[Rfam]
The record is a 114-nucleotide sequence from Nonomuraea sp. PA05, which matches "TPP riboswitch aptamer (THI element)" in Rfam.

RNA sequence: ACAGAUCGUCGCGGGAGCUCGGGGUGCCGGGCUGAGAGGGCAGCAACACAGCCGCUGCCGACCGCCUGAACCUGUCCGGGUAAUGCCGGCGUAGGGAGUGUGCGAUGACGCAUG
Numbered sequence: 001a002c003a004g005a006u007c008g009u010c011g012c013g014g015g016a017g018c019u020c021g022g023g024g025u026g027c028c029g030g031g032c033u034g035a036g037a038g039g040g041c042a043g044c045a046a047c048a049c050a051g052c053c054g055c056u057g058c059c060g061a062c063c064g065c066c067u068g069a070a071c072c073u074g075u076c077c078g079g080g081u082a083a084u085g086c087c088g089g090c091g092u093a094g095g096g097a098g099u100g101u102g103c104g105a106u107g108a109c110g111c112a113u114g
Base pairs, nucleotide, nucleotide: 006102010098011065012064013063014062017032018031019030020029021028039059040058041057042056043055071095072094073093074092076089077088078087079086
NCBI's taxonomy places the organism under Bacteria, Bacillati, Actinomycetota, Streptosporangiales, Nonomuraea.